[Rfam]
RNA: Group II catalytic intron D1-D4-7
RNA sequence: CCUACUGUCUCACCGGUAGUUCCCUGCCCGACUGUGCAUUAAUAGUAACAUAAAUGUGCAAAGCGUCGGCGACAAUGUAGCCACGGGGUUCCGUAGGUGCGGUUCGCGAGAGCCAAUCCGAAACUGCCAGUCGCAGGUGGUGAAGGUG
Numbered sequence: 001c002c003u004a005c006u007g008u009c010u011c012a013c014c015g016g017u018a019g020u021u022c023c024c025u026g027c028c029c030g031a032c033u034g035u036g037c038a039u040u041a042a043u044a045g046u047a048a049c050a051u052a053a054a055u056g057u058g059c060a061a062a063g064c065g066u067c068g069g070c071g072a073c074a075a076u077g078u079a080g081c082c083a084c085g086g087g088g089u090u091c092c093g094u095a096g097g098u099g100c101g102g103u104u105c106g107c108g109a110g111a112g113c114c115a116a117u118c119c120g121a122a123a124c125u126g127c128c129a130g131u132c133g134c135a136g137g138u139g140g141u142g143a144a145g146g147u148g
Stems, first nucleotide, its partner, number of pairs: 002019006028069005033060008042051002083094004096119002104111002123141006